[Rfam]
Notes
Small nucleolar RNA SNORD79: a 73-nucleotide RNA sequence from Phainopepla nitens. Its family is annotated with nucleolus and RNA processing in the Gene Ontology. Rfam's curators write: snoRNA U79 or Z22 is found in intron 7 of the gas5 gene in humans and is also present in mice. The match comes from Rfam's covariance-model search (66 bits). Rfam classes the family as a C/D-box small nucleolar RNA. Lineage of the source: Eukaryota > Sarcopterygii > Neognathae > Telluraves > Phainopepla.
RNA sequence: UACUGUUUGUGAUGAAUUCUAAGCAAUGGGAAUCUCUCUGAAAAAGGAUGAGAACUCUUGUGCUGAAACAGUA
Number, nucleotide and partner (000 for none) at each position: 001u073002a072003c071004u070005g069006u068007u067008u000009g000010u000011g000012a000013u000014g000015a000016a000017u000018u000019c000020u000021a000022a000023g000024c000025a000026a000027u000028g000029g000030g000031a000032a000033u000034c000035u000036c000037u000038c000039u000040g000041a000042a000043a000044a000045a000046g000047g000048a000049u000050g000051a000052g000053a000054a000055c000056u000057c000058u000059u000060g000061u000062g000063c000064u000065g000066a000067a007068a006069c005070a004071g003072u002073a001